[Rfam]
RNA: FMN riboswitch aptamer (RFN element)
Organism: Kroppenstedtia pulmonis
RNA sequence: UCAAUCCUUCGGGGCCGGGUGAAAAUCCCGACCGGCGGUGAUGGUGCUUGACGCCUCAGUCCGUGACCCGCGUGAAGCGGUGGACCCGGUGAAACUCCGGGACCGACAGUGAAAGUCUGGAUGGGAGAAGGAUGAG
Numbered sequence: 001u002c003a004a005u006c007c008u009u010c011g012g013g014g015c016c017g018g019g020u021g022a023a024a025a026u027c028c029c030g031a032c033c034g035g036c037g038g039u040g041a042u043g044g045u046g047c048u049u050g051a052c053g054c055c056u057c058a059g060u061c062c063g064u065g066a067c068c069c070g071c072g073u074g075a076a077g078c079g080g081u082g083g084a085c086c087c088g089g090u091g092a093a094a095c096u097c098c099g100g101g102a103c104c105g106a107c108a109g110u111g112a113a114a115g116u117c118u119g120g121a122u123g124g125g126a127g128a129a130g131g132a133u134g135a136g
Base pairs, nucleotide, nucleotide: 004133005132006131007130008129009128010127017029018028019027031116032115033105034104035064036063037062038061059103060102068080069079085101086100087099088098089097107119108118109117